RNA: Small nucleolar RNA SNORD115
Organism: Carlito syrichta
RNA sequence: GGGUCAUGAUGAGUACUUUUUUUUGGCUUGAGGAGCGGUGAUGACUUAAAUACCACGUACAAUGGCAUGAUGCUGAGGCCC
Numbered sequence: 001g002g003g004u005c006a007u008g009a010u011g012a013g014u015a016c017u018u019u020u021u022u023u024u025g026g027c028u029u030g031a032g033g034a035g036c037g038g039u040g041a042u043g044a045c046u047u048a049a050a051u052a053c054c055a056c057g058u059a060c061a062a063u064g065g066c067a068u069g070a071u072g073c074u075g076a077g078g079c080c081c
Base pairs, nucleotide, nucleotide: 001081002080003079004078005075006074007072008071
Dot-bracket structure: ((((((((..............................................................)).))..))))